[Rfam]
RNA sequence: AUAGGACGCUUCAAUGUGGACAUGGUGUGAAGAGUCUAUUGAGCUAGUUAGUAGUCCUCCGGCCCCUGAAUGCGGCUAAUCCUAAUCUCGGAGCAGGCACCCACAAACCAGUGGGCAACCUGUCGUAAUGGGUAACUCUGCGGCGGAACCGACUACUUUGGGUGUCCGUGUUUCCCUUUAUUCUUGUAUUGGCUGCUUAUGGUGACAAUUAGGAGAUUGUUACCAUAUAGCUAUUGGAUUGGCCAUCCGGUG
Numbered sequence: 001a002u003a004g005g006a007c008g009c010u011u012c013a014a015u016g017u018g019g020a021c022a023u024g025g026u027g028u029g030a031a032g033a034g035u036c037u038a039u040u041g042a043g044c045u046a047g048u049u050a051g052u053a054g055u056c057c058u059c060c061g062g063c064c065c066c067u068g069a070a071u072g073c074g075g076c077u078a079a080u081c082c083u084a085a086u087c088u089c090g091g092a093g094c095a096g097g098c099a100c101c102c103a104c105a106a107a108c109c110a111g112u113g114g115g116c117a118a119c120c121u122g123u124c125g126u127a128a129u130g131g132g133u134a135a136c137u138c139u140g141c142g143g144c145g146g147a148a149c150c151g152a153c154u155a156c157u158u159u160g161g162g163u164g165u166c167c168g169u170g171u172u173u174c175c176c177u178u179u180a181u182u183c184u185u186g187u188a189u190u191g192g193c194u195g196c197u198u199a200u201g202g203u204g205a206c207a208a209u210u211a212g213g214a215g216a217u218u219g220u221u222a223c224c225a226u227a228u229a230g231c232u233a234u235u236g237g238a239u240u241g242g243c244c245a246u247c248c249g250g251u252g
Stems, first nucleotide, its partner, number of pairs: 004012003020026002034196002042194005051182001060168003064162003073151003080147003086143002089140004094122004100115005123131003198227013

A member of the RNA family "Picornavirus internal ribosome entry site (IRES)" from Enterovirus betacoxsackie, 252 nucleotides long. A reference for the family is Liu et al. (1999), "Structural and functional analysis of the 5' untranslated region of coxsackievirus B3 RNA: In vivo translational and infectivity studies of full-length mutants", Virology. The organism belongs to Enterovirus B, within Viruses. This family represents the Picornavirus internal ribosome entry site (IRES).